A member of the RNA family "Small nucleolar RNA snoR99" from Trema andersonii, 102 nucleotides long. It scores 63 bits against the family's covariance model. Gene Ontology terms of the family: nucleolus and RNA processing. Pairs were carried over by alignment from the consensus structure, which was predicted with WAR. The source organism's lineage runs through Eukaryota, Viridiplantae, Euphyllophyta, Magnoliopsida and Trema. On this family, see Marker et al., Curr Biol 2002: "Experimental RNomics: identification of 140 candidates for small non-messenger RNAs in the plant Arabidopsis thaliana". By type it is an H/ACA-box small nucleolar RNA.
[Rfam]
RNA sequence: GUGCUUUAGAGAUGAACGAGUCCCUCACAUUCGCCGUUAUCUGUCGUUUGCUUUGUCAGCUUUCUUUCUAGUGUUUUGCUGAUCAUUUUUGAUGGAAAAUUU
Numbered sequence: 001g002u003g004c005u006u007u008a009g010a011g012a013u014g015a016a017c018g019a020g021u022c023c024c025u026c027a028c029a030u031u032c033g034c035c036g037u038u039a040u041c042u043g044u045c046g047u048u049u050g051c052u053u054u055g056u057c058a059g060c061u062u063u064c065u066u067u068c069u070a071g072u073g074u075u076u077u078g079c080u081g082a083u084c085a086u087u088u089u090u091g092a093u094g095g096a097a098a099a100u101u102u
Stems, first nucleotide, its partner, number of pairs: 040096006055083006